Rfam assigns this 98-nucleotide RNA sequence from Oceanispirochaeta crateris to the family "TPP riboswitch aptamer (THI element)". Rfam describes the family as follows. Vitamin B(1) in its active form thiamin pyrophosphate (TPP) is an essential coenzyme that is synthesised by coupling of pyrimidine and thiazole moieties in bacteria. The previously detected thiamin-regulatory element, thi box was extended, resulting in a new, highly conserved RNA secondary structure, the THI element, which is widely distributed in eubacteria and also occurs in some archaea. Analysis of operon structures identified a large number of new candidate thiamin-regulated genes, mostly transporters, in various prokaryotic organisms. A search with the family's covariance model found it, with a score of 66 bits. Its family is annotated with thiamine pyrophosphate binding in the Gene Ontology. Pairs were carried over by alignment from the consensus structure, which is taken from published work.
RNA sequence: AUCAUUCAUCAGGGGUGCUUGUAAAAUACAGGCUGAGAUCAAACCCUUUGAACCUGAUCUGUGUAAUAACAGCGAAGGAAGUAUGCGUCGGAACCCUU
Numbered sequence: 001a002u003c004a005u006u007c008a009u010c011a012g013g014g015g016u017g018c019u020u021g022u023a024a025a026a027u028a029c030a031g032g033c034u035g036a037g038a039u040c041a042a043a044c045c046c047u048u049u050g051a052a053c054c055u056g057a058u059c060u061g062u063g064u065a066a067u068a069a070c071a072g073c074g075a076a077g078g079a080a081g082u083a084u085g086c087g088u089c090g091g092a093a094c095c096c097u098u
Base pairs, nucleotide, nucleotide: 007085008084009083011047012046013045014044016041017033018032019031020030021029053078054077055076059072060071061070062069